[Rfam]
RNA sequence: AAACAGUCCCCUAUGUUUUGAUUCUUUGGCAGUUUUGGACCCCAAGUCCAUUGUUGACUCGGUCAACGCUGACGUGGCACCCUAAGUGAGGUGCUACGUGUCAAUCUUUUUUAUUUUUUUUGCCUUGGGGUCCAAAACUGCCAAAAAAUCAAAACAUAGGAGACUGUUU
Numbered sequence: 001a002a003a004c005a006g007u008c009c010c011c012u013a014u015g016u017u018u019u020g021a022u023u024c025u026u027u028g029g030c031a032g033u034u035u036u037g038g039a040c041c042c043c044a045a046g047u048c049c050a051u052u053g054u055u056g057a058c059u060c061g062g063u064c065a066a067c068g069c070u071g072a073c074g075u076g077g078c079a080c081c082c083u084a085a086g087u088g089a090g091g092u093g094c095u096a097c098g099u100g101u102c103a104a105u106c107u108u109u110u111u112u113a114u115u116u117u118u119u120u121u122g123c124c125u126u127g128g129g130g131u132c133c134a135a136a137a138c139u140g141c142c143a144a145a146a147a148a149u150c151a152a153a154a155c156a157u158a159g160g161a162g163a164c165u166g167u168u169u
Base pairs, nucleotide, nucleotide: 001169002168004166005165006164007163008162012158013157014156015155016154017153018152019151020150021149022148023147025145026144027143028142029141030140031139032138033137034136035135036134037133038132039131040130041129042128043127044126045125072099073098075096076095077094078093079092080091081090